Burkholderia RNA 7 (anti-hemB): a 90-nucleotide sequence from Methylibium sp. NZG. By type it is a small RNA. For this family Rfam cites "Identification of 22 candidate structured RNAs in bacteria using the CMfinder comparative genomics pipeline" (Weinberg et al., Nucleic Acids Res, 2007). Rfam's curators write: This RNA motif was identified by computational search in b-proteobacteria Burkholderia. Co-purified with Hfq, expression confirmed by Northern blot.

[Rfam]
RNA sequence: UCCCUGCUUUUCCUCCCUGAGCAGGUGCCUUACCGUGAUGACAGCGAUAAGGCUUUCAAAGCCCUGACCCAACGGUCAGGGCUUUUCUUU
Numbered sequence: 001u002c003c004c005u006g007c008u009u010u011u012c013c014u015c016c017c018u019g020a021g022c023a024g025g026u027g028c029c030u031u032a033c034c035g036u037g038a039u040g041a042c043a044g045c046g047a048u049a050a051g052g053c054u055u056u057c058a059a060a061g062c063c064c065u066g067a068c069c070c071a072a073c074g075g076u077c078a079g080g081g082c083u084u085u086u087c088u089u090u
Stems, first nucleotide, its partner, number of pairs: 003025006027053006061082008